[Rfam]
RNA sequence: CACCGAUAAUAGCAAACCAUUUGAAAGAAUGGGACGCAAAGCUAUAGGGCCUUUUGUUAGAUAGUAACAAGUGGCAGCCUGGCCACCGAA
Numbered sequence: 001c002a003c004c005g006a007u008a009a010u011a012g013c014a015a016a017c018c019a020u021u022u023g024a025a026a027g028a029a030u031g032g033g034a035c036g037c038a039a040a041g042c043u044a045u046a047g048g049g050c051c052u053u054u055u056g057u058u059a060g061a062u063a064g065u066a067a068c069a070a071g072u073g074g075c076a077g078c079c080u081g082g083c084c085a086c087c088g089a090a
Stems, first nucleotide, its partner, number of pairs: 012037002017032006041083003046080003049075003056068004
c-di-GMP-I riboswitch aptamer: a 90-nucleotide sequence from Vallitalea pronyensis. Rfam's curators write: GEMM was predicted in a large-scale screen for bacterial structured RNA regulatory elements.